[Rfam]
RNA: SAM riboswitch aptamer (S box leader)
RNA sequence: ACCUCAUCCAGAGGGGCAGAGGGAUACGGCCCGACGAAGCCCCGGCAACCACCGCGCAUGACUCUCGAUGACGAGGCAGCGACGUGGCAGGUGCUAAUUCCGUCCCCGUUCCGGCAGGUCGCCGCGGGGAAAGAUGAGAG
Numbered sequence: 001a002c003c004u005c006a007u008c009c010a011g012a013g014g015g016g017c018a019g020a021g022g023g024a025u026a027c028g029g030c031c032c033g034a035c036g037a038a039g040c041c042c043c044g045g046c047a048a049c050c051a052c053c054g055c056g057c058a059u060g061a062c063u064c065u066c067g068a069u070g071a072c073g074a075g076g077c078a079g080c081g082a083c084g085u086g087g088c089a090g091g092u093g094c095u096a097a098u099u100c101c102g103u104c105c106c107c108g109u110u111c112c113g114g115c116a117g118g119u120c121g122c123c124g125c126g127g128g129g130a131a132a133g134a135u136g137a138g139a140g
Stems, first nucleotide, its partner, number of pairs: 003138006013043005021032003026103004044095004049091002052087005099132001104129006